Rfam assigns this 56-nucleotide sequence to the family "nadA riboswitch".
It is one of the family's seed sequences.
Rfam classes the family as a small RNA.
On this family, see Chen et al., Nucleic Acids Res 2020: "Structural distinctions between NAD+ riboswitch domains 1 and 2 determine differential folding and ligand binding".
[Rfam]
RNA sequence: GGUUUCAACAACCCCGCGGAUCGGGCACCUUCUGGUGCAGUGGAUCCGCUGGAGCC
Dot-bracket structure: (((((((.....[[.((((((((.(((((....))))).])]))))))))))))))
Numbered sequence: 001g002g003u004u005u006c007a008a009c010a011a012c013c014c015c016g017c018g019g020a021u022c023g024g025g026c027a028c029c030u031u032c033u034g035g036u037g038c039a040g041u042g043g044a045u046c047c048g049c050u051g052g053a054g055c056c
Stems, first nucleotide, its partner, number of pairs: 001056007013042001014040001016049007023041001025038005